[Rfam]
RNA sequence: GGUCGAUGAUGGUGUUUCAAGACGGGGAUGACUUGUGGUUGAUUAUAAUUGUCACAAUUUCUGAGACC
Numbered sequence: 001g002g003u004c005g006a007u008g009a010u011g012g013u014g015u016u017u018c019a020a021g022a023c024g025g026g027g028a029u030g031a032c033u034u035g036u037g038g039u040u041g042a043u044u045a046u047a048a049u050u051g052u053c054a055c056a057a058u059u060u061c062u063g064a065g066a067c068c
Stems, first nucleotide, its partner, number of pairs: 001068004

Small nucleolar RNA sn668: a 68-nucleotide sequence from Anisakis simplex.
NCBI's taxonomy places the organism under Eukaryota, Protostomia, Spirurina, Ascaridomorpha, Anisakis simplex complex.
The base pairs follow the family's consensus structure, which was predicted with WAR.
The family's RNA type in Rfam is C/D-box small nucleolar RNA.
On this family, see Higa et al., Biochem Biophys Res Commun 2002: "Location of 2(')-O-methyl nucleotides in 26S rRNA and methylation guide snoRNAs in Caenorhabditis elegans".